[Rfam]
RNA: Mammalian CPEB3 ribozyme
Organism: Alligator mississippiensis
RNA sequence: GGUUGCAAGUUUGAGGCCAUAGCAGAAGUGCUCAUGGUAUGGCCCUCUCAGAUUCCAAUGAAUCUGUGAAUUCUGCU
Numbered sequence: 001g002g003u004u005g006c007a008a009g010u011u012u013g014a015g016g017c018c019a020u021a022g023c024a025g026a027a028g029u030g031c032u033c034a035u036g037g038u039a040u041g042g043c044c045c046u047c048u049c050a051g052a053u054u055c056c057a058a059u060g061a062a063u064c065u066g067u068g069a070a071u072u073c074u075g076c077u
Stems, first nucleotide, its partner, number of pairs: 013045001015044004021077007028040003049066007